[Rfam]
RNA: Purine riboswitch aptamer
Organism: Clostridium thermobutyricum
RNA sequence: UAUAAUAACAUUCGUAAGAUUCGUAUAAUUCUAGUAAUUGGUCUAGAAGUUUCUACCAGACACCGUAAAUGUCUUGGCUAUGAGUUAUUUGCAAUUUAUU
Number, nucleotide and partner (000 for none) at each position: 001u000002a000003u000004a000005a000006u000007a000008a000009c000010a000011u000012u000013c000014g000015u000016a000017a000018g086019a085020u084021u083022c082023g081024u080025a079026u000027a000028a000029u048030u047031c046032u045033a044034g043035u000036a000037a000038u000039u000040g000041g000042u000043c034044u033045a032046g031047a030048a029049g000050u000051u000052u000053c000054u000055a000056c000057c076058a075059g073060a072061c071062a070063c000064c000065g000066u000067a000068a000069a000070u062071g061072u060073c059074u000075u058076g057077g000078c000079u025080a024081u023082g022083a021084g020085u019086u018087a000088u000089u000090u000091g000092c000093a000094a000095u000096u000097u000098a000099u000100u000